[Rfam]
RNA sequence: UACGGAUUCGACAGGGGUAGGUCGAGCUUUGGUCGCGCGUCGAGGUUACGACUCGUAAAACGUUAUCGCCUAAUAAUAACUGGCAAAUCUUAUAAUCAACCUGCUUUAGCAGCUGCGUAAGUAGCCUAAAGCGAUCCUUCCUACCAUCGCCCGUGUGGUAGCCUUGAAGGGUCUCAAAUGAAGCGGGCUUUUGCUUCAAUCCGCAGUCUGAGGAUUGUUGCAGAAACUAAUCAGACUAGCCAUCUGGAAGCCUGUUGGUAGGCUGAAGGAAUGGCGAAAGAUAAUAUACCAACUACACGCGUAGAAGCCUAAGUGGCGAUGCCCUUGGACGUGGGUUCGAUUA
Numbered sequence: 001u002a003c004g005g006a007u008u009c010g011a012c013a014g015g016g017g018u019a020g021g022u023c024g025a026g027c028u029u030u031g032g033u034c035g036c037g038c039g040u041c042g043a044g045g046u047u048a049c050g051a052c053u054c055g056u057a058a059a060a061c062g063u064u065a066u067c068g069c070c071u072a073a074u075a076a077u078a079a080c081u082g083g084c085a086a087a088u089c090u091u092a093u094a095a096u097c098a099a100c101c102u103g104c105u106u107u108a109g110c111a112g113c114u115g116c117g118u119a120a121g122u123a124g125c126c127u128a129a130a131g132c133g134a135u136c137c138u139u140c141c142u143a144c145c146a147u148c149g150c151c152c153g154u155g156u157g158g159u160a161g162c163c164u165u166g167a168a169g170g171g172u173c174u175c176a177a178a179u180g181a182a183g184c185g186g187g188c189u190u191u192u193g194c195u196u197c198a199a200u201c202c203g204c205a206g207u208c209u210g211a212g213g214a215u216u217g218u219u220g221c222a223g224a225a226a227c228u229a230a231u232c233a234g235a236c237u238a239g240c241c242a243u244c245u246g247g248a249a250g251c252c253u254g255u256u257g258g259u260a261g262g263c264u265g266a267a268g269g270a271a272u273g274g275c276g277a278a279a280g281a282u283a284a285u286a287u288a289c290c291a292a293c294u295a296c297a298c299g300c301g302u303a304g305a306a307g308c309c310u311a312a313g314u315g316g317c318g319a320u321g322c323c324c325u326u327g328g329a330c331g332u333g334g335g336u337u338c339g340a341u342u343a
Stems, first nucleotide, its partner, number of pairs: 012327008026314004031309003036301005041055004046065001048063003105130005112125002133173006141161007149188006191223004197217003205237006239275005244269002250263003254293004258287003

transfer-messenger RNA: a 343-nucleotide sequence from Bacilli bacterium VT-13-104. Rfam classes the family as a non-coding RNA gene. Rfam describes the family as follows. Bacterial tmRNA, also known as 10Sa RNA or SsrA, is named for its dual tRNA and mRNA-like properties. Its role is to liberate the mRNA from a stalled ribosome. The match comes from Rfam's covariance-model search (142 bits).